[Rfam]
This 134-nucleotide sequence from Caenorhabditis briggsae belongs to the Rfam family "Caenorhabditis snoRNA ceN41". It is annotated as an H/ACA-box small nucleolar RNA. The organism belongs to Caenorhabditis, within Eukaryota.
RNA sequence: CAGCACCUUCACUCUUCUAUCAUUCCUGUGUGAAUGCCUAGAUUUAUUAAGGAUGCAAGAGAGAAGAACGGGAAGUUCGAAGACUUGCGGCAAGUUUCUCACGACUCCGCGAGUUCAAAACUAUCACCACAUUU
Numbered sequence: 001c002a003g004c005a006c007c008u009u010c011a012c013u014c015u016u017c018u019a020u021c022a023u024u025c026c027u028g029u030g031u032g033a034a035u036g037c038c039u040a041g042a043u044u045u046a047u048u049a050a051g052g053a054u055g056c057a058a059g060a061g062a063g064a065a066g067a068a069c070g071g072g073a074a075g076u077u078c079g080a081a082g083a084c085u086u087g088c089g090g091c092a093a094g095u096u097u098c099u100c101a102c103g104a105c106u107c108c109g110c111g112a113g114u115u116c117a118a119a120a121c122u123a124u125c126a127c128c129a130c131a132u133u134u
Stems, first nucleotide, its partner, number of pairs: 003056003006052004015041002017036001021032003070128002072125002074122004082115009096104002